[Rfam]
RNA sequence: CGCCGAGUUUGCAGCCGUGGGCGGGGAAGUCUUUCGGUUGCGAAGCCGGGGAACCACACACCCCUGGGGUGAAUCGCGUGCGAGGCGGAAAUCCCGUGGAGCGCGUGUAGGGCUACUUUGGGCCCGAACCCGACAGCUCACCUGGUAGGCGUUGGACAAAGAGGGA
Numbered sequence: 001c002g003c004c005g006a007g008u009u010u011g012c013a014g015c016c017g018u019g020g021g022c023g024g025g026g027a028a029g030u031c032u033u034u035c036g037g038u039u040g041c042g043a044a045g046c047c048g049g050g051g052a053a054c055c056a057c058a059c060a061c062c063c064c065u066g067g068g069g070u071g072a073a074u075c076g077c078g079u080g081c082g083a084g085g086c087g088g089a090a091a092u093c094c095c096g097u098g099g100a101g102c103g104c105g106u107g108u109a110g111g112g113c114u115a116c117u118u119u120g121g122g123c124c125c126g127a128a129c130c131c132g133a134c135a136g137c138u139c140a141c142c143u144g145g146u147a148g149g150c151g152u153u154g155g156a157c158a159a160a161g162a163g164g165g166a
Base pairs, nucleotide, nucleotide: 001151002150003149004148008044009043010042011041012040013039014038015037016036017035045146046145047144048143049142050141055066056065067131068130069129075107076106077105078104079103080102081101110125111124112123113122